About this RNA
A member of the RNA family "Small nucleolar RNA SNORA8" from Hucho hucho, 140 nucleotides long. The organism belongs to Hucho, within Eukaryota. It scores 39 bits against the family's covariance model.
RNA sequence: AGCACUGUAUGGUAUCUGCAGCCAGCCUUCACCACCGGCUGUUCUGUUCAUAACACAGUGCGAGAUCAACUCUUCAUAUGGCAUCGUUAGGCUCUGGGCUGGUCUGUGCUUAGUGCCCUGGUAUUUGUGCUGAGACAACA
Numbered sequence: 001a002g003c004a005c006u007g008u009a010u011g012g013u014a015u016c017u018g019c020a021g022c023c024a025g026c027c028u029u030c031a032c033c034a035c036c037g038g039c040u041g042u043u044c045u046g047u048u049c050a051u052a053a054c055a056c057a058g059u060g061c062g063a064g065a066u067c068a069a070c071u072c073u074u075c076a077u078a079u080g081g082c083a084u085c086g087u088u089a090g091g092c093u094c095u096g097g098g099c100u101g102g103u104c105u106g107u108g109c110u111u112a113g114u115g116c117c118c119u120g121g122u123a124u125u126u127g128u129g130c131u132g133a134g135a136c137a138a139c140a
Stems, first nucleotide, its partner, number of pairs: 002061006017052001018047004024040004065128002068125002071121002080110005